[Rfam]
RNA sequence: UUUUUUAAAGAGAAUUUAGCCUUCCAGCAAGAAGAGGCCAGGAAAUUUUCCU
Numbered sequence: 001u002u003u004u005u006u007a008a009a010g011a012g013a014a015u016u017u018a019g020c021c022u023u024c025c026a027g028c029a030a031g032a033a034g035a036g037g038c039c040a041g042g043a044a045a046u047u048u049u050c051c052u
Stems, first nucleotide, its partner, number of pairs: 008052001010050005015042003019038005
The record is a 52-nucleotide RNA sequence from Lentivirus humimdef1, which matches "HIV Ribosomal frameshift signal" in Rfam. For this family Rfam cites "The human immunodeficiency virus type 1 ribosomal frameshifting site is an invariant sequence determinant and an important target for antiviral therapy" (Biswas et al., J Virol, 2004). The base pairs follow the family's consensus structure, which is taken from published work. NCBI's taxonomy places the organism under Viruses, Riboviria, Ortervirales, Lentivirus, Lentivirus humimdef1. This family represents the HIV Ribosomal frameshift signal.